[Rfam]
RNA: Small nucleolar RNA SNORD73
Nucleotides: 070
Base pairs, nucleotide, nucleotide: 001070002069003068004067
Number, partner (000 for none) and nucleotide at each position: 001070a002069a003068c004067a005000c006000g007000u008000g009000a010000u011000g012000a013000a014000a015000g016000c017000u018000g019000u020000u021000u022000c023000g024000g025000u026000c027000c028000c029000a030000u031000a032000u033000g034000a035000u036000c037000u038000c039000c040000u041000g042000a043000u044000u045000a046000c047000u048000g049000u050000c051000u052000a053000u054000u055000g056000a057000g058000g059000u060000c061000a062000a063000c064000u065000g066000a067004u068003g069002u070001u